Rfam assigns this 346-nucleotide RNA sequence from Ophiocordyceps sinensis to the family "Nuclear RNase P". Pairs were carried over by alignment from the consensus structure, which is taken from published work.
RNA sequence: GGACGUCUCUCACCUCAGACGCCCUGCACAAGGGUCGUUCUGUCGUGUCUUGUUCGCAUGCGAGAAAUUCGGAGUAUCUCUUCACCGCACCCCACGGCCACCUCCUUCGGGGGGGAAACCGUGUGGGCACCGCAGUCGCUCUGCCUUUCGAGGCGGAGAGGACGGGUCUGCCCGUGAGGGCCUGGCGUCACCCCGACGCCUGCAACUUGGCAUCAGAAAUUUCAGGGCCCUCCGCCUCAGCGGGGGGAUACACCCUCUGGGAAGCCAUUGCGGAGAUUGUGUAUUGACACUUGAGUGCGAUGCGUGGCGUGGCGGAAGCCAUGAUUCGAUUCCGAUUAUUCUGUUC
Numbered sequence: 001g002g003a004c005g006u007c008u009c010u011c012a013c014c015u016c017a018g019a020c021g022c023c024c025u026g027c028a029c030a031a032g033g034g035u036c037g038u039u040c041u042g043u044c045g046u047g048u049c050u051u052g053u054u055c056g057c058a059u060g061c062g063a064g065a066a067a068u069u070c071g072g073a074g075u076a077u078c079u080c081u082u083c084a085c086c087g088c089a090c091c092c093c094a095c096g097g098c099c100a101c102c103u104c105c106u107u108c109g110g111g112g113g114g115g116a117a118a119c120c121g122u123g124u125g126g127g128c129a130c131c132g133c134a135g136u137c138g139c140u141c142u143g144c145c146u147u148u149c150g151a152g153g154c155g156g157a158g159a160g161g162a163c164g165g166g167u168c169u170g171c172c173c174g175u176g177a178g179g180g181c182c183u184g185g186c187g188u189c190a191c192c193c194c195g196a197c198g199c200c201u202g203c204a205a206c207u208u209g210g211c212a213u214c215a216g217a218a219a220u221u222u223c224a225g226g227g228c229c230c231u232c233c234g235c236c237u238c239a240g241c242g243g244g245g246g247g248a249u250a251c252a253c254c255c256u257c258u259g260g261g262a263a264g265c266c267a268u269u270g271c272g273g274a275g276a277u278u279g280u281g282u283a284u285u286g287a288c289a290c291u292u293g294a295g296u297g298c299g300a301u302g303c304g305u306g307g308c309g310u311g312g313c314g315g316a317a318g319c320c321a322u323g324a325u326u327c328g329a330u331u332c333c334g335a336u337u338a339u340u341c342u343g344u345u346c
Stems, first nucleotide, its partner, number of pairs: 001346004010307004015302001022060001033049003036045002070334005076277004170181004184200005202271004209266003225256003309322005